[Rfam]
RNA sequence: UUGCAGGAUAGAGGCGCGGCUCUUCAAGAGUAGCGUGGUGAGGGUGCCGGGCCCGGUGAACCGCGUGAAAGGGGAGGCCGCCGAAGGGACGCUCCCGGUGGUGCGUUUGCCUGGUCGCCCGGAUAAGAUCCGUUCGACUGUCGCCGCACACGCGGCGGAGUGCUGUCUGCUUU
Numbered sequence: 001u002u003g004c005a006g007g008a009u010a011g012a013g014g015c016g017c018g019g020c021u022c023u024u025c026a027a028g029a030g031u032a033g034c035g036u037g038g039u040g041a042g043g044g045u046g047c048c049g050g051g052c053c054c055g056g057u058g059a060a061c062c063g064c065g066u067g068a069a070a071g072g073g074g075a076g077g078c079c080g081c082c083g084a085a086g087g088g089a090c091g092c093u094c095c096c097g098g099u100g101g102u103g104c105g106u107u108u109g110c111c112u113g114g115u116c117g118c119c120c121g122g123a124u125a126a127g128a129u130c131c132g133u134u135c136g137a138c139u140g141u142c143g144c145c146g147c148a149c150a151c152g153c154g155g156c157g158g159a160g161u162g163c164u165g166u167c168u169g170c171u172u173u
Base pairs, nucleotide, nucleotide: 006168007167008166009165010164011163016081017080018079019078020077021076023075024074025073033066034065035064036063037062038061039060085112086111087110088107089106090105091104092103094101113139114138115137116136117135120132121131122130123129141158142157143156144155145154146153147152

This 173-nucleotide RNA from Flavonifractor sp. An52 belongs to the Rfam family "Lysine riboswitch aptamer". The family's consensus secondary structure is taken from published work. The source organism's lineage runs through Bacteria, Bacillati, Clostridia, Oscillospiraceae and Flavonifractor.